Shown here is a 239-nucleotide RNA sequence from Cysteiniphilum litorale, a member of the family "Group II catalytic intron D1-D4-6". Pairs were carried over by alignment from the consensus structure. Rfam's curators write: Group II introns are found in rRNA, tRNA and mRNA of organelles in fungi, plants and protists, and also in mRNA in bacteria. A search with the family's covariance model found it, with a score of 130 bits. A reference for the family is Bonen and Vogel (2001), "The ins and outs of group II introns", Trends Genet.
RNA sequence: AAAGUCCUGCCGUAGAAGGUUGACUAGACCACUACGUAGCGAGUCUUGCGCGGUCAAAGGUAACAAUGACUGUGAAGCGUAGACAGCGAAACAUUCGAGCCGAAACCAAAUGGUGAACGUGACAGCUCCGAAAUUUGACUAGUCGCAGGUGCUGAUACUUUUGGAAGGGUAGUAAGCAACAAUAGUUAAGAGGCUAAUCUAGUCAAUCUCUUAACUAUACCUGUCGGAGUCGUAGGCGU
Numbered sequence: 001a002a003a004g005u006c007c008u009g010c011c012g013u014a015g016a017a018g019g020u021u022g023a024c025u026a027g028a029c030c031a032c033u034a035c036g037u038a039g040c041g042a043g044u045c046u047u048g049c050g051c052g053g054u055c056a057a058a059g060g061u062a063a064c065a066a067u068g069a070c071u072g073u074g075a076a077g078c079g080u081a082g083a084c085a086g087c088g089a090a091a092c093a094u095u096c097g098a099g100c101c102g103a104a105a106c107c108a109a110a111u112g113g114u115g116a117a118c119g120u121g122a123c124a125g126c127u128c129c130g131a132a133a134u135u136u137g138a139c140u141a142g143u144c145g146c147a148g149g150u151g152c153u154g155a156u157a158c159u160u161u162u163g164g165a166a167g168g169g170u171a172g173u174a175a176g177c178a179a180c181a182a183u184a185g186u187u188a189a190g191a192g193g194c195u196a197a198u199c200u201a202g203u204c205a206a207u208c209u210c211u212u213a214a215c216u217a218u219a220c221c222u223g224u225c226g227g228a229g230u231c232g233u234a235g236g237c238g239u
Stems, first nucleotide, its partner, number of pairs: 011036005018030004037089001039087002043084004047079002049074008059064001122233001125230006145224006151177003156171004182218011